[Rfam]
RNA sequence: CCGCACUAGUCGGGGAGACAGCGGUGCCCUGUACCCGCAAUCCGCUACAGCGGGGAUGAAUCCCGGCCCCCGGACGUGAGGAUGUACUGUCCGCCCUGGAAAAGCAGUGAUGAUAGACCGGUCCCGCGCAACGGGGCUUCCGUGAACCGUGUCAGGCGGGGAACCGAGCAGCACUAAGCGGAUGGCCCCGUGUGCCGCGGGGAACUGUUCUUGAGCCGGCUGUCCAGGUAACGGGUAUGUCCUGCGCUUCAAAGGCCGGUGUGCGG
Dot-bracket structure: ((((((..(((((((.(.(...).).))))...(((((...........)))))))).....((((((...(((((..((((((((((...((.((((((......((......(((.((((((((((((.(((((..(((((.....((((....(((....)))....))))...)))))...)))))))...))))))..)))).)))...))......))))))...)))))))))))).)).)))...)))))).))))))

The record is a 266-nucleotide RNA from Colidextribacter sp. OB.20, which matches "Bacterial large signal recognition particle RNA" in Rfam. By type it is a non-coding RNA gene. The family's consensus secondary structure is taken from published work. A search with the family's covariance model found it, with a score of 187 bits. About the family: The signal recognition particle (SRP) is a universally conserved ribonucleoprotein involved in the co-translational targeting of proteins to membranes.